RNA sequence: UGAGUCCUGUGUGCAUAGUUUUCAUCUAUGUCUGGUAGCAGUAUCUGUCUGCGUUUUGCAUUCAGAUCUUGCUAUCCACACAAACGAAUGCAGCCAAAGAAUAAGUUGGGAUCAUAGUACUGGCCUAGUGUUGUGUUUUUUUAACACAUCUCCCACUGGCCAGCCUCCAAAUUCCCAGACACAA
Numbered sequence: 001u002g003a004g005u006c007c008u009g010u011g012u013g014c015a016u017a018g019u020u021u022u023c024a025u026c027u028a029u030g031u032c033u034g035g036u037a038g039c040a041g042u043a044u045c046u047g048u049c050u051g052c053g054u055u056u057u058g059c060a061u062u063c064a065g066a067u068c069u070u071g072c073u074a075u076c077c078a079c080a081c082a083a084a085c086g087a088a089u090g091c092a093g094c095c096a097a098a099g100a101a102u103a104a105g106u107u108g109g110g111a112u113c114a115u116a117g118u119a120c121u122g123g124c125c126u127a128g129u130g131u132u133g134u135g136u137u138u139u140u141u142u143a144a145c146a147c148a149u150c151u152c153c154c155a156c157u158g159g160c161c162a163g164c165c166u167c168c169a170a171a172u173u174c175c176c177a178g179a180c181a182c183a184a
Base pairs, nucleotide, nucleotide: 013091014090015089016088029082030081031080033078034077035076036074037073038072039071040070041069043067044066045065046064047063050060051059052058107177108176109175110174111173120163121162122161123160124159125158127157128156129155130154132148133147134146135145136144137143

The family of this 184-nucleotide RNA is "Small nucleolar RNA SNORA23". Rfam links the family to the GO terms RNA processing and nucleolus. From the family's description: The members of this family belong to the H/ACA class of snoRNAs which are thought to guide the sites of modification of uridines to pseudouridines. This family includes human snoRNA ACA23 (SNORA23) and mouse snoMBI-1. ACA23 is predicted to guide the pseudouridylation of residue U3737 and U4331 of 28S rRNA. The family's consensus secondary structure was predicted with RNAalifold. The literature on the family includes a 2001 paper in EMBO J by Huttenhofer et al., "RNomics: an experimental approach that identifies 201 candidates for novel, small, non-messenger RNAs in mouse". The family's RNA type in Rfam is H/ACA-box small nucleolar RNA.